RNA sequence: UGUGUAUAGCUGGUUGACUUCGGGUCAAAUCAAUUUUAAAGUAUUUGGUCCCCUUCAACCAGCUUUACGCA
Numbered sequence: 001u002g003u004g005u006a007u008a009g010c011u012g013g014u015u016g017a018c019u020u021c022g023g024g025u026c027a028a029a030u031c032a033a034u035u036u037u038a039a040a041g042u043a044u045u046u047g048g049u050c051c052c053c054u055u056c057a058a059c060c061a062g063c064u065u066u067a068c069g070c071a
Base pairs, nucleotide, nucleotide: 003069004068005067006066008064009063010062011061012060013059014058015057016056017055022050023049025048026047027046028045029044030043
mir-133 microRNA precursor family: a 71-nucleotide sequence from Pseudolycoriella hygida. The base pairs follow the family's consensus structure, which was predicted with PFOLD. The literature on the family includes a 2002 paper in Curr Biol by Lagos-Quintana et al., "Identification of tissue-specific microRNAs from mouse". A search with the family's covariance model found it, with a score of 58 bits. Rfam describes the family as follows. mir-133 was first experimentally characterised in mouse and homologues have since been discovered in several other species. The mature sequence is excised from the 3' arm of the hairpin.